RNA sequence: GCGCGUUGGCGGGGUUCGGUGAAAUUCCGAACCGGCGGUGAUCCGGCCCGAUGGCCGGUAAGCCCGCGACCCGGCCGAAUCCAUCGGCCGGUGGACCCGGUGAGAUUCCGGGGCCGACGGUUAAAGUCCGGAUGGGAGGCAGCGCGC
Dot-bracket structure: ..((((((.(......(((.......))).[[((((((.......................[[))))...((.................))....(((((.......)))))]])).(((.....]]))).......).))))))..
Numbered sequence: 001g002c003g004c005g006u007u008g009g010c011g012g013g014g015u016u017c018g019g020u021g022a023a024a025u026u027c028c029g030a031a032c033c034g035g036c037g038g039u040g041a042u043c044c045g046g047c048c049c050g051a052u053g054g055c056c057g058g059u060a061a062g063c064c065c066g067c068g069a070c071c072c073g074g075c076c077g078a079a080u081c082c083a084u085c086g087g088c089c090g091g092u093g094g095a096c097c098c099g100g101u102g103a104g105a106u107u108c109c110g111g112g113g114c115c116g117a118c119g120g121u122u123a124a125a126g127u128c129c130g131g132a133u134g135g136g137a138g139g140c141a142g143c144g145c146g147c
Stems, first nucleotide, its partner, number of pairs: 003145006010138001017029003031127002033116002035067004062114002071091002096112005118130003
The family of this 147-nucleotide RNA sequence from Virgisporangium aliadipatigenens is "FMN riboswitch aptamer (RFN element)". The base pairs follow the family's consensus structure, which is taken from published work. The source organism's lineage runs through Bacteria, Actinomycetota, Actinomycetes, Micromonosporales and Virgisporangium. From the family's description: The RFN element is a highly conserved domain that is found frequently in the 5'-untranslated regions of prokaryotic mRNAs that encode for flavin mononucleotide (FMN) biosynthesis and transport proteins. This element is a metabolite-dependent riboswitch that directly binds FMN in the absence of proteins. In Bacillus subtilis, the riboswitch most likely controls gene expression by causing premature transcription termination within the 5' untranslated region of the ribDEAHT operon and precluding access to the ribosome-binding site of ypaA mRNA.The FMN riboswitch structure, reported in present an FMN-bound six-stem junction, adopts a butterfly-like scaffold, stapled together by opposingly directed but nearly identically folded peripheral domains.